[Rfam]
RNA sequence: GAUUGUUACAGCUCUCUUAGAAUUUUUCCAGCAGGGUUUCUGACCCUGCUCAGAAAACCCAA
Numbered sequence: 001g002a003u004u005g006u007u008a009c010a011g012c013u014c015u016c017u018u019a020g021a022a023u024u025u026u027u028c029c030a031g032c033a034g035g036g037u038u039u040c041u042g043a044c045c046c047u048g049c050u051c052a053g054a055a056a057a058c059c060c061a062a
Base pairs, nucleotide, nucleotide: 034059035058037056038055039054040053041052042051043050
RNA: U7 small nuclear RNA
Organism: Rattus norvegicus